[Rfam]
This 87-nucleotide RNA sequence from Sesamum indicum belongs to the Rfam family "Small nucleolar RNA U54". Its Rfam clan is "U54 clan". Pairs were carried over by alignment from the consensus structure, which was predicted with PFOLD. Gene Ontology terms of the family: RNA processing and nucleolus. By type it is a C/D-box small nucleolar RNA. Rfam describes the family as follows. U54 is a C/D box small nucleolar RNA, which acts as a methylation guide for 18S ribosomal RNA in plants.

RNA sequence: GGCUCUAUGAUUACCUGCCUAAUUAUUAGGCAAUAUACGCUAUGCCGAUGUUUAACAUGAGUAGAUAAUUUUGUUUAGAUGAGAGCU
Dot-bracket structure: (((((.............................................................................)))))